[Rfam]
RNA sequence: CCGUGAACUUUGCAUCACGUACAUCACUUAGAUGAACUCUAGAGAGUUGAAUAGAAG
Numbered sequence: 001c002c003g004u005g006a007a008c009u010u011u012g013c014a015u016c017a018c019g020u021a022c023a024u025c026a027c028u029u030a031g032a033u034g035a036a037c038u039c040u041a042g043a044g045a046g047u048u049g050a051a052u053a054g055a056a057g
Stems, first nucleotide, its partner, number of pairs: 019037002022034004
Description
This 57-nucleotide RNA sequence from Hibiscus syriacus belongs to the Rfam family "Plastid-ndhJ 3UTR RNA". A reference for the family is Richter et al. (2023), "Retrograde signaling in plants: A critical review focusing on the GUN pathway and beyond", Plant Commun. Pairs were carried over by alignment from the consensus structure, which was predicted with LocARNA. Rfam describes the family as follows. Plastid ndhJ is a non-coding RNA (ncRNA) present in plastids. It was identified as a short stem-loop motif in the 3 prime untranslate region (3UTR) of ndhJ gene. It is annotated as a cis-regulatory element.